[Rfam]
RNA: mir-499 microRNA precursor family
RNA sequence: GAGGUGGAAGCAGUUAAGACUUGCAGUGAUGUUUAGAUAAAUUAAUGCAUGAACAUCACUUUAAGUCUGUGCUAACUCCA
Numbered sequence: 001g002a003g004g005u006g007g008a009a010g011c012a013g014u015u016a017a018g019a020c021u022u023g024c025a026g027u028g029a030u031g032u033u034u035a036g037a038u039a040a041a042u043u044a045a046u047g048c049a050u051g052a053a054c055a056u057c058a059c060u061u062u063a064a065g066u067c068u069g070u071g072c073u074a075a076c077u078c079c080a
Stems, first nucleotide, its partner, number of pairs: 017068007026059010